[Rfam]
The record is a 350-nucleotide RNA from Streptococcus thermophilus, which matches "transfer-messenger RNA" in Rfam. It is annotated as a non-coding RNA gene. For this family Rfam cites "Phylogenetic analysis of tmRNA secondary structure" (Williams and Bartel, RNA, 1996). Its family is annotated with RNA catabolic process in the Gene Ontology.
RNA sequence: GGGGCCGUUACGGAUUCGACAGGCAUUAUGAGGCAUAUUCUGCGACUCGUGUGGCGACGUUAACGCUCAGUUAAAUAUAACUGCAAAAAAUACUAAUUCUUACGCUGUAGCAGCCUAAACACCUGCUCGCGUGACUUCUAGCAGAUUGCUUAUGUUUGUUUAGAGGUUUUAUUGAUUUAUAAGCUACGUUCGAUCAUUGCCUAGCUGGUCGAAAAGAGAUUUAUAGGCUCGCAUAUAGAAGGCUUGAGUUAUGUGUCGUCUAUCUGUUAAAUGAAAGACAUAACCUAUGGUCGUAGACGAAUAUGUUGGCAGAUGCUUGGACGUGGGUUCGACUCCCACCGGCUCCAUAA
Numbered sequence: 001g002g003g004g005c006c007g008u009u010a011c012g013g014a015u016u017c018g019a020c021a022g023g024c025a026u027u028a029u030g031a032g033g034c035a036u037a038u039u040c041u042g043c044g045a046c047u048c049g050u051g052u053g054g055c056g057a058c059g060u061u062a063a064c065g066c067u068c069a070g071u072u073a074a075a076u077a078u079a080a081c082u083g084c085a086a087a088a089a090a091u092a093c094u095a096a097u098u099c100u101u102a103c104g105c106u107g108u109a110g111c112a113g114c115c116u117a118a119a120c121a122c123c124u125g126c127u128c129g130c131g132u133g134a135c136u137u138c139u140a141g142c143a144g145a146u147u148g149c150u151u152a153u154g155u156u157u158g159u160u161u162a163g164a165g166g167u168u169u170u171a172u173u174g175a176u177u178u179a180u181a182a183g184c185u186a187c188g189u190u191c192g193a194u195c196a197u198u199g200c201c202u203a204g205c206u207g208g209u210c211g212a213a214a215a216g217a218g219a220u221u222u223a224u225a226g227g228c229u230c231g232c233a234u235a236u237a238g239a240a241g242g243c244u245u246g247a248g249u250u251a252u253g254u255g256u257c258g259u260c261u262a263u264c265u266g267u268u269a270a271a272u273g274a275a276a277g278a279c280a281u282a283a284c285c286u287a288u289g290g291u292c293g294u295a296g297a298c299g300a301a302u303a304u305g306u307u308g309g310c311a312g313a314u315g316c317u318u319g320g321a322c323g324u325g326g327g328u329u330c331g332a333c334u335c336c337c338a339c340c341g342g343c344u345c346c347a348u349a350a
Base pairs, nucleotide, nucleotide: 001346002345003344004343005342006341007340020319021318022317023316024315025314026313027312032307033306034305035304036303037302038301039300040299043293044292045291046290047289048059049058050057053067054066055065056064109127110126111125112124113123133168134167135166136165137164138163140160141159142158143157144156145155146154148184149183150182151181152180153179189213190212191211192210193209194208195207196206199228200227201226202225203224231267232266233265235263236262237261238260239259241257242256243255248284249283250282253279254278323339324338325337326336327335